The family of this 91-nucleotide RNA sequence from Camellia sinensis is "Small nucleolar RNA snoR27".
The family is grouped with related families in Rfam's "snR68 clan".

RNA sequence: UAGGAUCAAUGAUGAUUGAUAAAAACUGCAUUAUCUAUCUGUAAUUCCCUCAAAAGAGAUUGAAAAUAGUCAUAUUAUUCUGAGAUCCAUU
Dot-bracket structure: .(((((..............................................................................)))).).
Numbered sequence: 001u002a003g004g005a006u007c008a009a010u011g012a013u014g015a016u017u018g019a020u021a022a023a024a025a026c027u028g029c030a031u032u033a034u035c036u037a038u039c040u041g042u043a044a045u046u047c048c049c050u051c052a053a054a055a056g057a058g059a060u061u062g063a064a065a066a067u068a069g070u071c072a073u074a075u076u077a078u079u080c081u082g083a084g085a086u087c088c089a090u091u
Stems, first nucleotide, its partner, number of pairs: 002090001003088004
Rfam 15.1 lists 649 matches to the family in 212 species. It is annotated as a C/D-box small nucleolar RNA. It scores 66 bits against the family's covariance model.